Shown here is a 95-nucleotide RNA sequence from Canis lupus, a member of the family "mir-8813 microRNA precursor family". Rfam links the family to the GO terms miRNA-mediated post-transcriptional gene silencing and RISC complex. The base pairs follow the family's consensus structure, which was predicted with RNAalifold.
[Rfam]
RNA sequence: UGGUGACCUGAGGCUCCCUGGCUGUCACUCUGUCCCAGCCCUUUCUGGCCUCGGGGUACACGCUGAGUCCAGUAAAGUCUGCGGGGUCCUGACCC
Numbered sequence: 001u002g003g004u005g006a007c008c009u010g011a012g013g014c015u016c017c018c019u020g021g022c023u024g025u026c027a028c029u030c031u032g033u034c035c036c037a038g039c040c041c042u043u044u045c046u047g048g049c050c051u052c053g054g055g056g057u058a059c060a061c062g063c064u065g066a067g068u069c070c071a072g073u074a075a076a077g078u079c080u081g082c083g084g085g086g087u088c089c090u091g092a093c094c095c
Stems, first nucleotide, its partner, number of pairs: 002094003005088005011080005021073004027068004032063002040056004